[Rfam]
RNA sequence: UGCCCAUGAUGACUCGCCAUGCUAAUACCGACCCCCAGCUGGGCCCGCAGCUUGGCUCUGGCAGGGGGGGGUGAGUUCAACUCUCUUCACAAAGAGCUGAGGUGC
Numbered sequence: 001u002g003c004c005c006a007u008g009a010u011g012a013c014u015c016g017c018c019a020u021g022c023u024a025a026u027a028c029c030g031a032c033c034c035c036c037a038g039c040u041g042g043g044c045c046c047g048c049a050g051c052u053u054g055g056c057u058c059u060g061g062c063a064g065g066g067g068g069g070g071g072u073g074a075g076u077u078c079a080a081c082u083c084u085c086u087u088c089a090c091a092a093a094g095a096g097c098u099g100a101g102g103u104g105c
Stems, first nucleotide, its partner, number of pairs: 001104004041058005
RNA: Small nucleolar RNA U6-53/MBII-28